[Rfam]
RNA sequence: CCGGCUCCCACGAACAAUCCCGCCCGGAGUAUAUUACUCUCGAUCUCUUGUGCGGACCUACGGGUGCCCAGA
Numbered sequence: 001c002c003g004g005c006u007c008c009c010a011c012g013a014a015c016a017a018u019c020c021c022g023c024c025c026g027g028a029g030u031a032u033a034u035u036a037c038u039c040u041c042g043a044u045c046u047c048u049u050g051u052g053c054g055g056a057c058c059u060a061c062g063g064g065u066g067c068c069c070a071g072a
Stems, first nucleotide, its partner, number of pairs: 003068003007064003020055004024050001029040001031038001
The family of this 72-nucleotide RNA from Leptomonas pyrrhocoris is "Trypanosomatid snoRNA TB11Cs3H1". Taxonomically the source falls in Leptomonas (Eukaryota, Discoba, Euglenozoa, Leishmaniinae). Rfam links the family to the GO terms nucleolus and RNA processing. The family's RNA type in Rfam is H/ACA-box small nucleolar RNA.